Streptococcus sRNA SpF59 (ldcC RNA): a 56-nucleotide RNA from Robinsoniella sp. RHS. Taxonomically the source falls in Robinsoniella (Bacteria, Bacillota, Clostridia, Lachnospiraceae). The match comes from Rfam's covariance-model search (68 bits). It is annotated as a small RNA. For this family Rfam cites "Control of virulence by small RNAs in Streptococcus pneumoniae" (Mann et al., PLoS Pathog, 2012).
[Rfam]
RNA sequence: UGACCACUUUCACUUUGGAAAGUUUAGGCCAUGCGGACAGCCGGGUCAACUGCCGA
Numbered sequence: 001u002g003a004c005c006a007c008u009u010u011c012a013c014u015u016u017g018g019a020a021a022g023u024u025u026a027g028g029c030c031a032u033g034c035g036g037a038c039a040g041c042c043g044g045g046u047c048a049a050c051u052g053c054c055g056a
Stems, first nucleotide, its partner, number of pairs: 001048005006023006